[Rfam]
RNA sequence: CAUGAAGACGGCACUCAUUCUCGUAGUAGGAAGGCGCGUGGGCAAGGCGGUGUAACCGCCGGGCGAAUCCCCCCAUGCGCAAGACACAGGCUCCCUCGGGGGCCUUUUUUAUUAUCCGAAA
Numbered sequence: 001c002a003u004g005a006a007g008a009c010g011g012c013a014c015u016c017a018u019u020c021u022c023g024u025a026g027u028a029g030g031a032a033g034g035c036g037c038g039u040g041g042g043c044a045a046g047g048c049g050g051u052g053u054a055a056c057c058g059c060c061g062g063g064c065g066a067a068u069c070c071c072c073c074c075a076u077g078c079g080c081a082a083g084a085c086a087c088a089g090g091c092u093c094c095c096u097c098g099g100g101g102g103c104c105u106u107u108u109u110u111a112u113u114a115u116c117c118g119a120a121a
Stems, first nucleotide, its partner, number of pairs: 009026001029117003034080009046060005063069001086106001088105007